[Rfam]
The family of this 90-nucleotide sequence from Zostera marina is "Small nucleolar RNA Z122".
The base pairs follow the family's consensus structure, which was predicted with PFOLD.
Rfam 15.1 lists 822 matches to the family in 247 species.
A reference for the family is Chen et al. (2003), "The high diversity of snoRNAs in plants: identification and comparative study of 120 snoRNA genes from Oryza sativa", Nucleic Acids Res.
The family's RNA type in Rfam is C/D-box small nucleolar RNA.
Its family is annotated with nucleolus and RNA processing in the Gene Ontology.
RNA sequence: AUUUGAAGAUGAUGAUGACAUAUAUCGAAAAUAAUAGAUGCUUUUUGUAAGUGCUGAAUUAAUAUAUUUGCACGUCAGUCUGAUUCCAUU
Numbered sequence: 001a002u003u004u005g006a007a008g009a010u011g012a013u014g015a016u017g018a019c020a021u022a023u024a025u026c027g028a029a030a031a032u033a034a035u036a037g038a039u040g041c042u043u044u045u046u047g048u049a050a051g052u053g054c055u056g057a058a059u060u061a062a063u064a065u066a067u068u069u070g071c072a073c074g075u076c077a078g079u080c081u082g083a084u085u086c087c088a089u090u
Stems, first nucleotide, its partner, number of pairs: 001090001003088001005086003
Dot-bracket structure: (.(.(((............................................................................))).).)